[Rfam]
RNA sequence: GUGCCUUUGUGAUGAAUGAGUCCCUUAUAUUGAGCCCAUCCAUUUCACUUUGUCUGCAAUUCUUCUAGUCAAUUGCUGAUCAUUAGAGGAUGGCACAUUU
Numbered sequence: 001g002u003g004c005c006u007u008u009g010u011g012a013u014g015a016a017u018g019a020g021u022c023c024c025u026u027a028u029a030u031u032g033a034g035c036c037c038a039u040c041c042a043u044u045u046c047a048c049u050u051u052g053u054c055u056g057c058a059a060u061u062c063u064u065c066u067a068g069u070c071a072a073u074u075g076c077u078g079a080u081c082a083u084u085a086g087a088g089g090a091u092g093g094c095a096c097a098u099u100u
Base pairs, nucleotide, nucleotide: 036093037092038091039090040089052080053079054078056076057075058074059073

Notes
The record is a 100-nucleotide RNA from Coptis chinensis, which matches "Small nucleolar RNA snoR99" in Rfam. A search with the family's covariance model found it, with a score of 74 bits. The literature on the family includes a 2002 paper in Curr Biol by Marker et al., "Experimental RNomics: identification of 140 candidates for small non-messenger RNAs in the plant Arabidopsis thaliana". Rfam classes the family as an H/ACA-box small nucleolar RNA. Rfam links the family to the GO terms nucleolus and RNA processing. Pairs were carried over by alignment from the consensus structure, which was predicted with WAR.